[Rfam]
RNA: Metazoan signal recognition particle RNA
Organism: Polypterus senegalus
RNA sequence: GCCGGGCGCGGUGGCGUGCGUCUGUAAUCCCAGCUACUCGGGAGGCUGAGGCUGGCGGAUCGCUUGAGCCCAGGAGUUCUGGGCUGUAGUGGCCUAUGUCGAUCGGGUGUCCGCACUAAGCUCGGCAUCGAUAUGGUGUUUCCAAGGGAGCUUGGGAUCACCAGGUCGGCUAAGGAGGGGUGAAUCGGUCCAGGUCGGAAACGGAGCAGAUCAAAGCCCCCGUGCCGCUCAGUAGUGGGAUCGCGCCUGUGAAUAGGCGCUGCAGUGCAGCCUGGGCGAGACAGCGAAACACAGUCUUUU
Number, nucleotide and partner (000 for none) at each position: 001g046002c045003c044004g023005g022006g021007c020008g019009c018010g017011g000012u000013g000014g000015c000016g000017u010018g009019c008020g007021u006022c005023u004024g000025u000026a000027a000028u043029c042030c041031c000032a000033g000034c000035u000036a000037c000038u000039c000040g000041g030042g029043a028044g003045g002046c001047u000048g298049a297050g296051g295052c294053u293054g292055g000056c000057g000058g000059a000060u287061c286062g285063c284064u283065u000066g000067a000068g277069c276070c275071c274072a273073g272074g271075a000076g000077u000078u000079c270080u269081g268082g000083g266084c265085u264086g263087u262088a261089g260090u259091g258092g000093c257094c256095u255096a254097u253098g000099u251100c000101g000102a000103u000104c249105g248106g247107g246108u245109g244110u243111c239112c238113g000114c237115a236116c235117u234118a233119a000120g230121c000122u000123c227124g226125g225126c224127a223128u222129c168130g167131a166132u165133a000134u163135g162136g161137u160138g159139u000140u157141u156142c155143c154144a153145a152146g151147g000148g000149a000150g000151c146152u145153u144154g143155g142156g141157a140158u000159c138160a137161c136162c135163a134164g000165g132166u131167c130168g129169g000170c174171u000172a000173a000174g170175g000176a000177g220178g219179g218180g217181u216182g000183a000184a000185u000186c000187g212188g211189u210190c209191c000192a000193g000194g000195u204196c203197g202198g000199a000200a000201a000202c197203g196204g195205a000206g000207c000208a000209g190210a189211u188212c187213a000214a000215a000216g181217c180218c179219c178220c177221c000222g128223u127224g126225c125226c124227g123228c000229u000230c120231a000232g000233u118234a117235g116236u115237g114238g112239g111240a000241u000242c000243g110244c109245g108246c107247c106248u105249g104250u000251g099252a000253a097254u096255a095256g094257g093258c091259g090260c089261u088262g087263c086264a085265g084266u083267g000268c081269a080270g079271c074272c073273u072274g071275g070276g069277c068278g000279a000280g000281a000282c000283a064284g063285c062286g061287a060288a000289a000290c000291a000292c054293a053294g052295u051296c050297u049298u048299u000300u000